[Rfam]
RNA sequence: UCGCCCAUCGUGAUGAACCCAAUACGGAUGUAAGAGCUAGAGCUCAUUGUCCGAGAGCGCAAAACCCCAUGUGGAUCUUUCCGUUGCCUUCCUUCUGAACACCCCC
Numbered sequence: 001u002c003g004c005c006c007a008u009c010g011u012g013a014u015g016a017a018c019c020c021a022a023u024a025c026g027g028a029u030g031u032a033a034g035a036g037c038u039a040g041a042g043c044u045c046a047u048u049g050u051c052c053g054a055g056a057g058c059g060c061a062a063a064a065c066c067c068c069a070u071g072u073g074g075a076u077c078u079u080u081c082c083g084u085u086g087c088c089u090u091c092c093u094u095c096u097g098a099a100c101a102c103c104c105c106c
Base pairs, nucleotide, nucleotide: 003105025083026082027081028080
Shown here is a 106-nucleotide sequence from Cristinia sonorae, a member of the family "Small nucleolar RNA Z13/snr52". A search with the family's covariance model found it, with a score of 68 bits. Rfam 15.1 lists 1,203 matches to the family in 866 species. The family's RNA type in Rfam is C/D-box small nucleolar RNA. Gene Ontology terms of the family: RNA processing and nucleolus.